[Rfam]
Nucleotides: 120
Stems, first nucleotide, its partner, number of pairs: 060082004065077004085099002088097003
Number, partner (000 for none) and nucleotide at each position: 001000u002000c003000c004000g005000u006000c007000c008000g009000u010000c011000c012000c013000g014000u015000g016000g017000a018000c019000g020000c021000c022000c023000u024000g025000a026000c027000c028000g029000a030000c031000c032000g033000a034000g035000c036000c037000c038000g039000c040000u041000c042000c043000g044000g045000g046000c047000u048000a049000c050000c051000c052000u053000g054000g055000c056000c057000g058000g059000g060082u061081g062080c063079g064000c065077c066076u067075u068074c069000c070000g071000c072000a073000g074068g075067g076066a077065g078000c079063c080062g081061c082060a083000a084000a085099g086098c087000c088097g089096a090095c091000a092000g093000c094000c095090g096089u097088c098086g099085c100000a101000g102000c103000c104000c105000a106000g107000g108000g109000a110000g111000c112000a113000c114000c115000u116000u117000u118000a119000u120000g
Streptomyces-metH RNA: a 120-nucleotide RNA sequence. By type it is a small RNA. Pairs were carried over by alignment from the consensus structure, which is taken from published work. It scores 108 bits against the family's covariance model.